[Rfam]
RNA sequence: ACUGCUGAGCCAUCUCUCCAGCCCAAAAGAUGUGUUUUUUAAAAGAUAGGGUCUCGGGGCUGGAGAGAUGGCUCAGCGGU
Numbered sequence: 001a002c003u004g005c006u007g008a009g010c011c012a013u014c015u016c017u018c019c020a021g022c023c024c025a026a027a028a029g030a031u032g033u034g035u036u037u038u039u040u041a042a043a044a045g046a047u048a049g050g051g052u053c054u055c056g057g058g059g060c061u062g063g064a065g066a067g068a069u070g071g072c073u074c075a076g077c078g079g080u
Base pairs, nucleotide, nucleotide: 002079003078004077005076006075007074008073009072010071011070012069013068014067015066016065017064018063019062020061021060022059023058024057
mir-3473 microRNA precursor family: an 80-nucleotide RNA sequence from Nannospalax galili. The family has 5 seed sequences and 1,094 matches in Rfam 15.1. NCBI's taxonomy places the organism under Eukaryota, Sarcopterygii, Amniota, Muroidea, Nannospalax. Pairs were carried over by alignment from the consensus structure, which was predicted with RNAalifold.